A member of the RNA family "MIR6274 microRNA precursor family" from Prunus persica, 105 nucleotides long. A search with the family's covariance model found it, with a score of 90 bits. Gene Ontology terms of the family: RISC complex and miRNA-mediated post-transcriptional gene silencing.
RNA sequence: GAAUAACACUUUUUGCUAUUUUCGACCAAUAACGCAGUGAUACAUAGAAUAACUUUUUCACGUGUCAUUGUGUUAUUGGUCGAAAAUAACAAAAUAGUGUUAUUC
Dot-bracket structure: .((((.....(((((.(((.(((((((((((((((((((((((.(.(((......))).).))))))))))))))))))))))).))).)))))......)))).